[Rfam]
RNA sequence: CUUGAUCAGAAACGAACUGGACUUGUGAUCAUCCCCGGGAAGGCGCGCCCACAUUCACGCCGCCCUACCAAGGCU
Dot-bracket structure: ..(((((.((............))..))))).......(((.(.(....).).)))...................
RNA: Actinobacteria sRNA Ms_AS-8